[Rfam]
RNA sequence: ACAACGGCUCUUUUCAGAGCUACCCAACACAUCCAAAAAAAGCUGAU
Numbered sequence: 001a002c003a004a005c006g007g008c009u010c011u012u013u014u015c016a017g018a019g020c021u022a023c024c025c026a027a028c029a030c031a032u033c034c035a036a037a038a039a040a041a042g043c044u045g046a047u
Stems, first nucleotide, its partner, number of pairs: 006021006